[Rfam]
A member of the RNA family "T-box leader" from Paenibacillus solani, 301 nucleotides long.
RNA sequence: UGAAUAACGUUGAACGGGAAGAGUAGGAAGGUAUGGCCUUCAGAGAGCGGAAUUGCUACCGAGCGCUGUGAGAUUCCGCAGGAACCAGCUUACCGAAGUCGCCCCGGAGUUGCGGACUUGAGAGAGAGUAGGGAAUUAAUCGCUACCCUGGUUAGAGUUCGCCGGCCGCAGCCGUUAUCUGCGUAAAGUGUCGUGCUUGACCGGAAGCCUUUCAUGUACACCGUGGAAGGACAACGGUUGAUGAACCAUGUAAGCACGAAACAAAGGUGGUACCGCGAGAGAACAGUCUUUCGUCCUUUGA
Numbered sequence: 001u002g003a004a005u006a007a008c009g010u011u012g013a014a015c016g017g018g019a020a021g022a023g024u025a026g027g028a029a030g031g032u033a034u035g036g037c038c039u040u041c042a043g044a045g046a047g048c049g050g051a052a053u054u055g056c057u058a059c060c061g062a063g064c065g066c067u068g069u070g071a072g073a074u075u076c077c078g079c080a081g082g083a084a085c086c087a088g089c090u091u092a093c094c095g096a097a098g099u100c101g102c103c104c105c106g107g108a109g110u111u112g113c114g115g116a117c118u119u120g121a122g123a124g125a126g127a128g129u130a131g132g133g134a135a136u137u138a139a140u141c142g143c144u145a146c147c148c149u150g151g152u153u154a155g156a157g158u159u160c161g162c163c164g165g166c167c168g169c170a171g172c173c174g175u176u177a178u179c180u181g182c183g184u185a186a187a188g189u190g191u192c193g194u195g196c197u198u199g200a201c202c203g204g205a206a207g208c209c210u211u212u213c214a215u216g217u218a219c220a221c222c223g224u225g226g227a228a229g230g231a232c233a234a235c236g237g238u239u240g241a242u243g244a245a246c247c248a249u250g251u252a253a254g255c256a257c258g259a260a261a262c263a264a265a266g267g268u269g270g271u272a273c274c275g276c277g278a279g280a281g282a283a284c285a286g287u288c289u290u291u292c293g294u295c296c297u298u299u300g301a
Base pairs, nucleotide, nucleotide: 007110008109016104017103018102026094027093029091030090031089037082038081039080047079048078049077050076051075052074053073054072113161114160115159116158117157118156119155163174164173165172191259192258193257194256195255196254197253198252199251264298265297266296267295275294276293277292278291279290280289281288282287
Background: Taxonomically the source falls in Paenibacillus (Bacteria, Bacillati, Caryophanales, Paenibacillaceae). By type it is a cis-regulatory leader.